Rfam assigns this 69-nucleotide sequence from Sinocyclocheilus rhinocerous to the family "miR-430 microRNA precursor family". The source organism's lineage runs through Eukaryota, Actinopteri, Cypriniphysae, Cypriniformes and Sinocyclocheilus. The family is grouped with related families in Rfam's "mir-290 clan". Gene Ontology terms of the family: RISC complex and miRNA-mediated post-transcriptional gene silencing. The match comes from Rfam's covariance-model search (62 bits). The family's consensus secondary structure was predicted with RNAalifold.
Nucleotides: 069
Base pairs, nucleotide, nucleotide: 004065006063007062008061009060010059011058013056014055015054016053018049019048020047021046022045024043025042026041
Number, partner (000 for none) and nucleotide at each position: 001000a002000u003000c004065a005000g006063u007062a008061c009060c010059c011058u012000c013056a014055c015054a016053a017000u018049g019048c020047a021046c022045u023000u024043a025042c026041u027000u028000g029000u030000c031000u032000u033000u034000u035000g036000a037000a038000u039000u040000u041026g042025g043024u044000a045022a046021g047020u048019g049018c050000u051000a052000u053016u054015u055014g056013u057000u058011g059010g060009g061008g062007u063006g064000g065004u066000u067000u068000c069000a